A member of the RNA family "Small nucleolar RNA snoR77" from Chenopodium quinoa, 127 nucleotides long. A search with the family's covariance model found it, with a score of 81 bits. The base pairs follow the family's consensus structure, which was predicted with WAR. Taxonomically the source falls in Chenopodium (Eukaryota, Euphyllophyta, Magnoliopsida, Mesangiospermae).
RNA sequence: AGGCAGCCCCCUAGCAAAAAAAUACAAUUGAUAAGGGAGGUGUUAUUCUACUCGUAUAUUAUUUCUUUGGCUCUUCAGACCUGCUGAGAUUCUCUAUGACGCAGUUCUAGUAACGCUAAAGUACAUU
Numbered sequence: 001a002g003g004c005a006g007c008c009c010c011c012u013a014g015c016a017a018a019a020a021a022a023u024a025c026a027a028u029u030g031a032u033a034a035g036g037g038a039g040g041u042g043u044u045a046u047u048c049u050a051c052u053c054g055u056a057u058a059u060u061a062u063u064u065c066u067u068u069g070g071c072u073c074u075u076c077a078g079a080c081c082u083g084c085u086g087a088g089a090u091u092c093u094c095u096a097u098g099a100c101g102c103a104g105u106u107c108u109a110g111u112a113a114c115g116c117u118a119a120a121g122u123a124c125a126u127u
Stems, first nucleotide, its partner, number of pairs: 002044004007040002009037004013032001015030003065121003070116002072113001077108003081104001083102002088094002

It is annotated as an H/ACA-box small nucleolar RNA.